sok antitoxin (CssrC): a 156-nucleotide RNA sequence from Candidatus Erwinia dacicola. Rfam links the family to the GO term mRNA binding. A search with the family's covariance model found it, with a score of 102 bits. Also identified in Shigella as CssrC.

RNA sequence: GGGUGCCUGAAGCUGUCUGCUUCGGGCAUGAUGCAAGACGCAGAUAGUUGAAAGCCCCGAGAGUUAAUCCUUUAACCCACGAGGCCGACAAUGAAACUUGACAAUUCUAUUGUAAGCCUCUUUCCCGUAAGGAGGCAAGUAUGCCUGCAAAAUACG
Numbered sequence: 001g002g003g004u005g006c007c008u009g010a011a012g013c014u015g016u017c018u019g020c021u022u023c024g025g026g027c028a029u030g031a032u033g034c035a036a037g038a039c040g041c042a043g044a045u046a047g048u049u050g051a052a053a054g055c056c057c058c059g060a061g062a063g064u065u066a067a068u069c070c071u072u073u074a075a076c077c078c079a080c081g082a083g084g085c086c087g088a089c090a091a092u093g094a095a096a097c098u099u100g101a102c103a104a105u106u107c108u109a110u111u112g113u114a115a116g117c118c119u120c121u122u123u124c125c126c127g128u129a130a131g132g133a134g135g136c137a138a139g140u141a142u143g144c145c146u147g148c149a150a151a152a153u154a155c156g
Base pairs, nucleotide, nucleotide: 001058002057003056005055006054008052011049012048013047014046015045016044017043018042019041020040022038023037026034027033059080061078063076064075065074066073067072081120082119083118084117085116088113089112090111091110092109093107094106095105124147128143129142